[Rfam]
RNA sequence: AAAAAGGGCUUCUGUCGUGAGUGACACGUGGGGUGGGCUGGCCUCGGUCUGUCCUGCCCCGUGCGGAAUCGACAUCAAGAGAUUUCGGAAGCACAAUUUUUGUUCCUGGGGCUGCUGGUAAUCGCUCGUUCCGGCGCCCCC
Numbered sequence: 001a002a003a004a005a006g007g008g009c010u011u012c013u014g015u016c017g018u019g020a021g022u023g024a025c026a027c028g029u030g031g032g033g034u035g036g037g038c039u040g041g042c043c044u045c046g047g048u049c050u051g052u053c054c055u056g057c058c059c060c061g062u063g064c065g066g067a068a069u070c071g072a073c074a075u076c077a078a079g080a081g082a083u084u085u086c087g088g089a090a091g092c093a094c095a096a097u098u099u100u101u102g103u104u105c106c107u108g109g110g111g112c113u114g115c116u117g118g119u120a121a122u123c124g125c126u127c128g129u130u131c132c133g134g135c136g137c138c139c140c141c
Base pairs, nucleotide, nucleotide: 008092009091010090011089012088013026014025015024016023017022027063028062029061030060031059032058033057034056035055036054037053064087065086066085067084068083069082070081109139110138111137112136114135115134116133117132118131120130121129122128
This 141-nucleotide RNA from Crocodylus porosus belongs to the Rfam family "U11 spliceosomal RNA".
The base pairs follow the family's consensus structure, which is taken from published work.
The family's RNA type in Rfam is spliceosomal small nuclear RNA.
NCBI's taxonomy places the organism under Eukaryota, Deuterostomia, Vertebrata, Euteleostomi, Crocodylus.